[Rfam]
RNA: Plastid-psbA-1 3UTR RNA
RNA sequence: UCGAAGCUCCAUCUAAAAAUGGAUAAGAUCUUGGUCUGAGUGUAGCUGAGUUUUUGAAAAAACGGAGCAAUAACCCCCUUCUUGUUCUAUCAAGAGGGCGUUAUUGUU
Number, nucleotide and partner (000 for none) at each position: 001u000002c000003g000004a000005a000006g000007c000008u023009c022010c021011a020012u019013c000014u000015a000016a000017a000018a000019a012020u011021g010022g009023a008024u000025a000026a000027g000028a000029u000030c000031u000032u000033g000034g000035u000036c000037u000038g000039a000040g000041u000042g000043u000044a000045g000046c000047u000048g000049a000050g000051u000052u000053u000054u000055u000056g000057a000058a000059a000060a000061a000062a000063c000064g000065g000066a108067g107068c106069a105070a104071u103072a102073a101074c000075c000076c098077c000078c000079u096080u095081c094082u093083u092084g000085u000086u000087c000088u000089a000090u000091c000092a083093a082094g081095a080096g079097g000098g076099c000100g000101u073102u072103a071104u070105u069106g068107u067108u066